Background:
Rfam assigns this 78-nucleotide sequence from Chiloscyllium punctatum to the family "mir-92 microRNA precursor family". A reference for the family is Houbaviy et al. (2003), "Embryonic stem cell-specific MicroRNAs", Dev Cell. NCBI's taxonomy places the organism under Eukaryota, Opisthokonta, Metazoa, Hemiscylliidae, Chiloscyllium. Gene Ontology terms of the family: miRNA-mediated post-transcriptional gene silencing and RISC complex. Rfam describes the family as follows. This family represents the microRNA precursor mir-92. Human miR-92 has two predicted hairpin precursor sequences: mir-92-1 on chromosome 13 and mir-92-2 on chromosome X. miR-92 has also been cloned from mouse embryonic stem cells. The mature sequence is excised from the 3' arm of the hairpin.
Nucleotides: 078
Base pairs, nucleotide, nucleotide: 004074005073006072010068011067012066013065014064016062017061018060019059020058022056023055026053027052028051029050030049031048032047033046
Number, partner (000 for none) and nucleotide at each position: 001000u002000g003000u004074u005073u006072u007000g008000u009000c010068u011067a012066g013065g014064u015000u016062g017061g018060g019059a020058u021000g022056g023055g024000c025000a026053g027052c028051a029050g030049u031048a032047u033046u034000u035000a036000c037000g038000u039000u040000u041000u042000a043000u044000u045000u046033g047032a048031u049030a050029u051028u052027g053026c054000a055023c056022u057000u058020g059019u060018c061017c062016c063000g064014g065013c066012c067011u068010a069000u070000a071000c072006a073005g074004a075000u076000c077000a078000a